[Rfam]
RNA sequence: AACACGUUCCUUAGAUCCACCUCUGGGGAGUUUUUCCGCUCCGGUUCUGUUGUGUCCUCUCUCUGGGAGCAGCAGGAUCCGGCCGGAGGCUCCCAGCAGCUUUACGGCUGUCCAGUCGGAGGUGCUUGAGUCAUUGGCGUGUGAGAUCAGUCUACCUGUUUACCCAGCAUCCUCUCUGCCCUGAUCCUUUAUGGGAAAACACCAGGGCAGAACAGCUGGAGAGCGGACAAA
Numbered sequence: 001a002a003c004a005c006g007u008u009c010c011u012u013a014g015a016u017c018c019a020c021c022u023c024u025g026g027g028g029a030g031u032u033u034u035u036c037c038g039c040u041c042c043g044g045u046u047c048u049g050u051u052g053u054g055u056c057c058u059c060u061c062u063c064u065g066g067g068a069g070c071a072g073c074a075g076g077a078u079c080c081g082g083c084c085g086g087a088g089g090c091u092c093c094c095a096g097c098a099g100c101u102u103u104a105c106g107g108c109u110g111u112c113c114a115g116u117c118g119g120a121g122g123u124g125c126u127u128g129a130g131u132c133a134u135u136g137g138c139g140u141g142u143g144a145g146a147u148c149a150g151u152c153u154a155c156c157u158g159u160u161u162a163c164c165c166a167g168c169a170u171c172c173u174c175u176c177u178g179c180c181c182u183g184a185u186c187c188u189u190u191a192u193g194g195g196a197a198a199a200c201a202c203c204a205g206g207g208c209a210g211a212a213c214a215g216c217u218g219g220a221g222a223g224c225g226g227a228c229a230a231a
Stems, first nucleotide, its partner, number of pairs: 002142007010130005018124008026094005035087004041082004046076004052070001055068003096111006156226005163219001166217003175211008183202001185197001187195001

Shown here is a 231-nucleotide RNA from Labeo rohita, a member of the family "Small nucleolar RNA SNORA53". Its family is annotated with RNA processing and nucleolus in the Gene Ontology. A search with the family's covariance model found it, with a score of 109 bits. The family's RNA type in Rfam is H/ACA-box small nucleolar RNA.